[Rfam]
RNA sequence: CUGAGCUAGUGAUGAAACGGUUAUCCCUGUCCGAAACGAAUAGCUGCUCUGUGGAAGCACGAAUCUGAGGCUCAG
Number, nucleotide and partner (000 for none) at each position: 001c075002u074003g073004a072005g071006c070007u069008a000009g000010u000011g000012a000013u000014g000015a000016a000017a000018c000019g000020g000021u000022u000023a000024u000025c000026c000027c000028u000029g000030u000031c000032c000033g000034a000035a000036a000037c000038g000039a000040a000041u000042a000043g000044c000045u000046g000047c000048u000049c000050u000051g000052u000053g000054g000055a000056a000057g000058c000059a000060c000061g000062a000063a000064u000065c000066u000067g000068a000069g007070g006071c005072u004073c003074a002075g001
The family of this 75-nucleotide RNA sequence from Heliornis fulica is "Small nucleolar RNA R38". Gene Ontology terms of the family: nucleolus and RNA processing. Lineage of the source: Eukaryota > Chordata > Vertebrata > Coelurosauria > Heliornis. On this family, see Bachellerie et al., Trends Biochem Sci 1995: "Antisense snoRNAs: a family of nucleolar RNAs with long complementarities to rRNA". About the family: snoR38 is a C/D box small nucleolar RNA conserved across yeast, human, Arabidopsis and rice. It is encoded in the intron of elongation factor-1 gamma in both pombe and cerevisiae. snoR38 guides the methylation of 2'-O-ribose sites in 28S rRNA. It is annotated as a C/D-box small nucleolar RNA. The family has 19 seed sequences and 2,295 matches in Rfam 15.1.